Rfam assigns this 162-nucleotide sequence from Vescimonas coprocola to the family "M-box riboswitch aptamer (ykoK leader)". NCBI's taxonomy places the organism under Bacteria, Bacillati, Bacillota, Oscillospiraceae, Vescimonas. The literature on the family includes a 2004 paper in Proc Natl Acad Sci U S A by Barrick et al., "New RNA motifs suggest an expanded scope for riboswitches in bacterial genetic control".
RNA sequence: UAUAUUUCCCGGUAGGUAAGGCUACCGUAGGGAUAUGGGCUGCUGCCGCGGAGUGGUGGAGACACCAUGAGAGGGUUUGAACAGGCGAUAUCGAAACCAAGGUAUCAUCUAAUGCAGCUUCACCGCCCCACGAUGCUAAAGCUUGUUACGGUGCUCAGGUCA
Numbered sequence: 001u002a003u004a005u006u007u008c009c010c011g012g013u014a015g016g017u018a019a020g021g022c023u024a025c026c027g028u029a030g031g032g033a034u035a036u037g038g039g040c041u042g043c044u045g046c047c048g049c050g051g052a053g054u055g056g057u058g059g060a061g062a063c064a065c066c067a068u069g070a071g072a073g074g075g076u077u078u079g080a081a082c083a084g085g086c087g088a089u090a091u092c093g094a095a096a097c098c099a100a101g102g103u104a105u106c107a108u109c110u111a112a113u114g115c116a117g118c119u120u121c122a123c124c125g126c127c128c129c130a131c132g133a134u135g136c137u138a139a140a141g142c143u144u145g146u147u148a149c150g151g152u153g154c155u156c157a158g159g160u161c162a
Stems, first nucleotide, its partner, number of pairs: 005158002010153001011149001013100001015143003020137003026132003030128003039118005045077001046074002049071001055066004084109002087106001090103003
Dot-bracket structure: ....((...((.[.(((..(((...(((.(((......(((((.(((.(.....((((....))))....).))..)......((.(..(((.......])))..).))....))))).......))).)))..)))...))).....)...)...))....